[Rfam]
RNA sequence: UUUGCAUUUGUGAAGACAGAAGCAAAAACUAUGACCUAGGGGCUUCUGUGUGAUGCUAGCAAA
Numbered sequence: 001u002u003u004g005c006a007u008u009u010g011u012g013a014a015g016a017c018a019g020a021a022g023c024a025a026a027a028a029c030u031a032u033g034a035c036c037u038a039g040g041g042g043c044u045u046c047u048g049u050g051u052g053a054u055g056c057u058a059g060c061a062a063a
Base pairs, nucleotide, nucleotide: 001063002062003061004060005059016049017048018047019046020045021044022043023042029039030038031037
Rfam assigns this 63-nucleotide RNA sequence from Nothoprocta ornata to the family "Selenocysteine insertion sequence 1". The incorporation of selenocysteine into a protein sequence is directed by an in-frame UGA codon (usually a stop codon) within the coding region of the mRNA. Selenoprotein mRNAs contain a conserved secondary structure in the 3' UTR that is required for the distinction of UGA stop from UGA selenocysteine. The selenocysteine insertion sequence (SECIS) is around 60 nt in length and adopts a hairpin structure which is sufficiently well-defined and conserved to act as a computational screen for selenoprotein genes. The base pairs follow the family's consensus structure, which is taken from published work. Taxonomically the source falls in Nothoprocta (Eukaryota, Teleostomi, Sauropsida, Palaeognathae). It is annotated as a cis-regulatory element. For this family Rfam cites "A novel RNA structural motif in the selenocysteine insertion element of eukaryotic selenoprotein mRNAs" (Walczak et al., RNA, 1996).